[Rfam]
Nucleotides: 073
Stems, first nucleotide, its partner, number of pairs: 001073002004070003010065002012061019
Number, partner (000 for none) and nucleotide at each position: 001073c002072g003000c004070u005069g006068a007000a008000g009000g010065g011064g012061a013060u014059u015058c016057c017056u018055g019054g020053u021052g022051a023050u024049g025048u026047g027046a028045u029044u030043u031000u032000a033000g034000a035000g036000g037000a038000a039000c040000a041000c042000a043030g044029a045028a046027u047026c048025a049024c050023a051022u052021u053020g054019c055018c056017a057016g058015g059014g060013a061012u062000u063000a064011c065010c066000a067000a068006u069005u070004g071000g072002c073001g